[Rfam]
RNA sequence: CCCAGUGCUUACGCCCCGGGCUAUUGGCUGCCGCCCCUUCGGGGCU
Numbered sequence: 001c002c003c004a005g006u007g008c009u010u011a012c013g014c015c016c017c018g019g020g021c022u023a024u025u026g027g028c029u030g031c032c033g034c035c036c037c038u039u040c041g042g043g044g045c046u
Base pairs, nucleotide, nucleotide: 001020002019003018005016007014008013033045034044035043036042037041
RNA: Acido-Lenti-1 RNA
Organism: Urbifossiella limnaea